[Rfam]
RNA sequence: CCAACUGUACCGUUGUUGGCCCCACUGGCACAUGCAGGUUGAGCAAUCAGCCUGUGUGAAACUGCCAGGAAACGUACCCGCAGGAAACUGUAGGCGAUCCCUUGAGGGAAAGCUGAAUCUGCCAAUAGCAGGUAGAGAGGGUC
Numbered sequence: 001c002c003a004a005c006u007g008u009a010c011c012g013u014u015g016u017u018g019g020c021c022c023c024a025c026u027g028g029c030a031c032a033u034g035c036a037g038g039u040u041g042a043g044c045a046a047u048c049a050g051c052c053u054g055u056g057u058g059a060a061a062c063u064g065c066c067a068g069g070a071a072a073c074g075u076a077c078c079c080g081c082a083g084g085a086a087a088c089u090g091u092a093g094g095c096g097a098u099c100c101c102u103u104g105a106g107g108g109a110a111a112g113c114u115g116a117a118u119c120u121g122c123c124a125a126u127a128g129c130a131g132g133u134a135g136a137g138a139g140g141g142u143c
Base pairs, nucleotide, nucleotide: 002018003017004016005015007014026067027066028065029064030063031058032057033056034055035054036053037052038051039050040049041048042047080091081090082089083088093114094113095112100107101106118136119135120134121133122132123131
The record is a 143-nucleotide RNA from Chlorobium sp., which matches "Group II catalytic intron D1-D4-7" in Rfam. Rfam links the family to the GO term Group II intron splicing. A search with the family's covariance model found it, with a score of 79 bits. Rfam's curators write: Group II introns are found in rRNA, tRNA and mRNA of organelles in fungi, plants and protists, and also in mRNA in bacteria. A reference for the family is Bonen and Vogel (2001), "The ins and outs of group II introns", Trends Genet.